[Rfam]
A member of the RNA family "MIR397 microRNA precursor family" from Sarcophilus harrisii, 103 nucleotides long. Its family is annotated with RISC complex and miRNA-mediated post-transcriptional gene silencing in the Gene Ontology. The literature on the family includes a 2009 paper in BMC Genomics by Mica et al., "High throughput approaches reveal splicing of primary microRNA transcripts and tissue specific expression of mature microRNAs in Vitis vinifera". Lineage of the source: Eukaryota > Euteleostomi > Sarcopterygii > Dasyuridae > Sarcophilus.
RNA sequence: CAAAAAGACAUCAUUGAGACCAGCUCUUAGAUAGCUACUGUCUUUUUGGUUUCUUAAAAAAAAGACAAUAGCUAUCUAAGAGCUGAUCUCAAUGAUGUCUUUU
Number, nucleotide and partner (000 for none) at each position: 001c000002a000003a000004a000005a000006a100007g099008a098009c097010a096011u095012c000013a093014u092015u091016g090017a089018g088019a087020c000021c085022a084023g083024c082025u081026c080027u079028u078029a000030g076031a075032u074033a000034g000035c000036u000037a000038c000039u000040g000041u000042c000043u000044u000045u000046u000047u000048g000049g000050u000051u000052u000053c000054u000055u000056a000057a000058a000059a000060a000061a000062a000063a000064g000065a000066c000067a000068a000069u000070a000071g000072c000073u000074a032075u031076c030077u000078a028079a027080g026081a025082g024083c023084u022085g021086a000087u019088c018089u017090c016091a015092a014093u013094g000095a011096u010097g009098u008099c007100u006101u000102u000103u000